Rfam assigns this 110-nucleotide RNA from Paenibacillus thalictri to the family "azaaromatic riboswitch aptamer (yjdF RNA)". The match comes from Rfam's covariance-model search (71 bits).
[Rfam]
RNA sequence: AAGGCGCAGCGUAAAAUCACAGUUCCGGUUGGUAGUCCGGACGCAUAGGCCGUAAUCGGCGGUGUCAGUAUCCUUCCCCCUCGGGAUGUCCGUCGUCCGCGUUUUAUUAA
Number, nucleotide and partner (000 for none) at each position: 001a000002a000003g000004g102005c101006g100007c099008a000009g097010c095011g094012u000013a000014a000015a000016a000017u000018c000019a000020c000021a000022g042023u041024u000025c040026c039027g038028g037029u000030u000031g000032g000033u000034a000035g000036u000037c028038c027039g026040g025041a023042c022043g065044c064045a063046u062047a000048g060049g000050c000051c000052g000053u000054a000055a000056u000057c000058g000059g000060c048061g000062g046063u045064g044065u043066c000067a000068g000069u000070a000071u000072c000073c000074u000075u086076c085077c084078c083079c000080c000081u000082c000083g078084g077085g076086a075087u000088g000089u000090c000091c000092g000093u000094c011095g010096u000097c009098c000099g007100c006101g005102u004103u000104u000105u000106a000107u000108u000109a000110a000